The record is a 76-nucleotide sequence from Flavobacterium johnsoniae, which matches "Flavo-1 RNA" in Rfam.
NCBI's taxonomy places the organism under Bacteria, Flavobacteriales, Flavobacteriaceae, Flavobacterium, Flavobacterium johnsoniae.
Pairs were carried over by alignment from the consensus structure, which is taken from published work.
The sequence is in the family's curated seed alignment.
[Rfam]
RNA sequence: GUCUAGCCCUGAUGGAAGCGGCAUCCUUUUGUGGCGGUGUUCGCCGCAAAAGAUAUAGCAGACAGCAGGUUUCAGC
Number, nucleotide and partner (000 for none) at each position: 001g000002u000003c000004u000005a000006g000007c000008c000009c068010u067011g066012a000013u064014g063015g000016a000017a000018g059019c058020g000021g000022c000023a054024u053025c052026c000027u000028u000029u049030u048031g047032u046033g045034g044035c043036g042037g000038u000039g000040u000041u000042c036043g035044c034045c033046g032047c031048a030049a029050a000051a000052g025053a024054u023055a000056u000057a000058g019059c018060a000061g000062a000063c014064a013065g000066c011067a010068g009069g000070u000071u000072u000073c000074a000075g000076c000